Rfam assigns this 101-nucleotide RNA to the family "DUF3800-VII RNA". Rfam classes the family as a small RNA. It is one of the family's seed sequences.
[Rfam]
RNA sequence: AGUGAGUGAGUAGUUCGCUGAGUUACUAAAGGGUAUGCGUAUUUGCGUACCAGCAGGCUUGCCCUGUGGGUACCUUUAGUCAGGGGAAAGCUCACUUUUUA
Numbered sequence: 001a002g003u004g005a006g007u008g009a010g011u012a013g014u015u016c017g018c019u020g021a022g023u024u025a026c027u028a029a030a031g032g033g034u035a036u037g038c039g040u041a042u043u044u045g046c047g048u049a050c051c052a053g054c055a056g057g058c059u060u061g062c063c064c065u066g067u068g069g070g071u072a073c074c075u076u077u078a079g080u081c082a083g084g085g086g087a088a089a090g091c092u093c094a095c096u097u098u099u100u101a
Base pairs, nucleotide, nucleotide: 001096002095003094004093005092006091007090016084018083019082020081021080026079027078028077029076030075031074032051033050034049035048036047037046038045054066055065056064057063